[Rfam]
RNA sequence: GAAAGUCUUCGGGGCAAGGUGAGAAGGCAUUUUGCCUUCAAUUCCUGACCGGCGGUGAUAGGCGAAAAGCCUUAAGCCCGCGAGCCGAAAGGCUGAUCCGGUGAGAUUCCGGAGCCGACAGUAAAGUCUGGAUGGGAGAAGACUUGU
Dot-bracket structure: ..((((((((......(((........................))).[[((((((....................[[))))..(((....)))...(((((.......)))))]])).(((....]]))).......))))))))..
RNA: FMN riboswitch aptamer (RFN element)
Organism: Fervidicola ferrireducens